Small nucleolar RNA SNORA4: a 136-nucleotide RNA from Fukomys damarensis. It scores 106 bits against the family's covariance model. Lineage of the source: Eukaryota > Chordata > Craniata > Tetrapoda > Fukomys. It is annotated as an H/ACA-box small nucleolar RNA. ACA4 is a member of the H/ACA class of snoRNA that guide the sites of modification of uridines to pseudouridines. The base pairs follow the family's consensus structure, which was predicted with PFOLD.
RNA sequence: UCACCAAAAGUUAACUUUGGGGGUAAGGUUUUUCAUAACCUUUACCAACCUAGACUGUUUGGGAGACUAAAAGACCACACUCCACAGUGAACUAUACCACUAAGUAUAUAGUUCAUUACUAUUUUGUGGUUACAUC
Numbered sequence: 001u002c003a004c005c006a007a008a009a010g011u012u013a014a015c016u017u018u019g020g021g022g023g024u025a026a027g028g029u030u031u032u033u034c035a036u037a038a039c040c041u042u043u044a045c046c047a048a049c050c051u052a053g054a055c056u057g058u059u060u061g062g063g064a065g066a067c068u069a070a071a072a073g074a075c076c077a078c079a080c081u082c083c084a085c086a087g088u089g090a091a092c093u094a095u096a097c098c099a100c101u102a103a104g105u106a107u108a109u110a111g112u113u114c115a116u117u118a119c120u121a122u123u124u125u126g127u128g129g130u131u132a133c134a135u136c
Stems, first nucleotide, its partner, number of pairs: 004062005012057002016053002019050002023046001026043001027040004072131001075129005086117011